THF (Tetrahydrofolate) riboswitch aptamer: a 100-nucleotide RNA from Enterococcus lacertideformus.
The source organism's lineage runs through Bacteria, Bacillati, Bacillota, Enterococcaceae and Enterococcus.
The base pairs follow the family's consensus structure, which is taken from published work.
The family has 101 seed sequences and 747 matches in Rfam 15.1.
About the family: Tetrahydrofolate (THF) riboswitch was first reported for Ames et al. as an RNA motif in 5' untranslated (5'-UTR)regions of folate transport and biosynthesis genes in Firmicutes genomes.
The literature on the family includes a 2010 paper in Chem Biol by Ames et al., "A eubacterial riboswitch class that senses the coenzyme tetrahydrofolate".

[Rfam]
RNA sequence: AUCAGAGUAGAAGAUAAAGCGUUAAGUGCUGAGAGGAUGGGAUGUUGUCUCUUUGACGAAGGACAAGUUGUUCGCGGUUUUAUUUUUCGCAUUCGCUGCA
Dot-bracket structure: ..(((....(((((((((((((...((.(.((((((...[[[[[...)))))).)))...((((.....))))))).)))))))).)).]]]]].)))..